[Rfam]
RNA sequence: CGAUGAGGUAGAGGUGCGGAAUUUAUGAGUAAACUAUGUGAGGAUGACAACGAGGAUCAUAGUUGAAAGGGUUUUUCGCCGAAGCAAAAAUAAACUUGUCAAUGUUAUUUUUGUUGGGGUUGCCUUGAAAAAGGGUAACACUGUCAUUAUAGAGUCGAAUCUAUAAUGGAGGGCUACUGAUCGU
Numbered sequence: 001c002g003a004u005g006a007g008g009u010a011g012a013g014g015u016g017c018g019g020a021a022u023u024u025a026u027g028a029g030u031a032a033a034c035u036a037u038g039u040g041a042g043g044a045u046g047a048c049a050a051c052g053a054g055g056a057u058c059a060u061a062g063u064u065g066a067a068a069g070g071g072u073u074u075u076u077c078g079c080c081g082a083a084g085c086a087a088a089a090a091u092a093a094a095c096u097u098g099u100c101a102a103u104g105u106u107a108u109u110u111u112u113g114u115u116g117g118g119g120u121u122g123c124c125u126u127g128a129a130a131a132a133g134g135g136u137a138a139c140a141c142u143g144u145c146a147u148u149a150u151a152g153a154g155u156c157g158a159a160u161c162u163a164u165a166a167u168g169g170a171g172g173g174c175u176a177c178u179g180a181u182c183g184u
Base pairs, nucleotide, nucleotide: 007178008177009176010175011174016079017078018077019076020075021074024071032064033063034062035061036060037059038058083115084114085113086112087111088110089109090108091107092106093105116142117141119139120138121137122136123135124134125133126132144169145168146167147166148165149164150163151162152161